[Rfam]
RNA sequence: GUGCCAUGAUGUUAACUGUCAACACAUCAUUCUGAAGUAGAAUUGUGUGGAGACCUGAGUGCUGAGCACC
Numbered sequence: 001g002u003g004c005c006a007u008g009a010u011g012u013u014a015a016c017u018g019u020c021a022a023c024a025c026a027u028c029a030u031u032c033u034g035a036a037g038u039a040g041a042a043u044u045g046u047g048u049g050g051a052g053a054c055c056u057g058a059g060u061g062c063u064g065a066g067c068a069c070c
Base pairs, nucleotide, nucleotide: 001069002068003067004066